Source information
A member of the RNA family "glmS glucosamine-6-phosphate activated ribozyme aptamer" from Desulfosporosinus acididurans, 162 nucleotides long. Rfam classes the family as a riboswitch.
RNA sequence: AGAGACGUUUAAGCGCCAGGACCUUAUCUAUUAUUACGUUUAAGGUCGACGAGGAAGAGGGUUAUCGAAUCUUUCGGCGGGUCCCUCUCGGUGGCUUGUCACCGUUACGCUUACAUAAAACCAGAGAGCAAUUUCCGGGACAAAGGGUGAGUGAACAAGAAA
Numbered sequence: 001a002g003a004g005a006c007g008u009u010u011a012a013g014c015g016c017c018a019g020g021a022c023c024u025u026a027u028c029u030a031u032u033a034u035u036a037c038g039u040u041u042a043a044g045g046u047c048g049a050c051g052a053g054g055a056a057g058a059g060g061g062u063u064a065u066c067g068a069a070u071c072u073u074u075c076g077g078c079g080g081g082u083c084c085c086u087c088u089c090g091g092u093g094g095c096u097u098g099u100c101a102c103c104g105u106u107a108c109g110c111u112u113a114c115a116u117a118a119a120a121c122c123a124g125a126g127a128g129c130a131a132u133u134u135c136c137g138g139g140a141c142a143a144a145g146g147g148u149g150a151g152u153g154a155a156c157a158a159g160a161a162a
Base pairs, nucleotide, nucleotide: 020047021046022045023044024043025042026041028038056088057087058086059085060084065077066076067075068074089104090103091102092101093100109152110151111150112149113148114147121138122137124135125134126133127132
A search with the family's covariance model found it, with a score of 107 bits.
NCBI's taxonomy places the organism under Bacteria, Clostridia, Eubacteriales, Desulfitobacteriaceae, Desulfosporosinus.
The base pairs follow the family's consensus structure, which is taken from published work.